[Rfam]
RNA: Vault RNA
RNA sequence: AAGCCAGUUCAGCCCAGCGGUUCCAUUGACCAAAGCAUUGCGUAGAUCCCCUAAUCGCUUCCAGCGGUUUGAGACCCAUGGGCGCUACCUGGCUU
Numbered sequence: 001a002a003g004c005c006a007g008u009u010c011a012g013c014c015c016a017g018c019g020g021u022u023c024c025a026u027u028g029a030c031c032a033a034a035g036c037a038u039u040g041c042g043u044a045g046a047u048c049c050c051c052u053a054a055u056c057g058c059u060u061c062c063a064g065c066g067g068u069u070u071g072a073g074a075c076c077c078a079u080g081g082g083c084g085c086u087a088c089c090u091g092g093c094u095u
Base pairs, nucleotide, nucleotide: 002094003093004092005091006090007089012083013082014081015080017079019077020076026072027071028070029069